Record summary:
A member of the RNA family "Bacillus sRNA ncr1575", 215 nucleotides long. Pairs were carried over by alignment from the consensus structure, which is taken from published work. On this family, see Irnov et al., Nucleic Acids Res 2010: "Identification of regulatory RNAs in Bacillus subtilis". The sequence is in the family's curated seed alignment.
RNA sequence: AUAUACAAUUAUGAGAGGACUGAUGGAUGAACAAUGAUGAACUAAACUAUAUUUUAAGUUGAAAUCAAUUACUUCAAACUACAAAAUAUAGGAUUAGUCUGUCCAUUUUUAUCAAUCAGUUUAUACUUUUUUCGUCAUUUUCCUAUGGCAAAAAAGUCCUUAAUCAAUACCUGUAACCGACUAAUCCUUCCAAUGACAAUUGGGGGGAUUUUUUU
Numbered sequence: 001a002u003a004u005a006c007a008a009u010u011a012u013g014a015g016a017g018g019a020c021u022g023a024u025g026g027a028u029g030a031a032c033a034a035u036g037a038u039g040a041a042c043u044a045a046a047c048u049a050u051a052u053u054u055u056a057a058g059u060u061g062a063a064a065u066c067a068a069u070u071a072c073u074u075c076a077a078a079c080u081a082c083a084a085a086a087u088a089u090a091g092g093a094u095u096a097g098u099c100u101g102u103c104c105a106u107u108u109u110u111a112u113c114a115a116u117c118a119g120u121u122u123a124u125a126c127u128u129u130u131u132u133c134g135u136c137a138u139u140u141u142c143c144u145a146u147g148g149c150a151a152a153a154a155a156g157u158c159c160u161u162a163a164u165c166a167a168u169a170c171c172u173g174u175a176a177c178c179g180a181c182u183a184a185u186c187c188u189u190c191c192a193a194u195g196a197c198a199a200u201u202g203g204g205g206g207g208a209u210u211u212u213u214u215u
Base pairs, nucleotide, nucleotide: 016110017109018108024105025104026103027102031098032097043096044095045094047092048091049089050088051087052086053085054084058079059077060076061075062074063073065071118164120162125157126156127155128154129153130152131151183210184209185208186207187206188205189204190203191202192201193200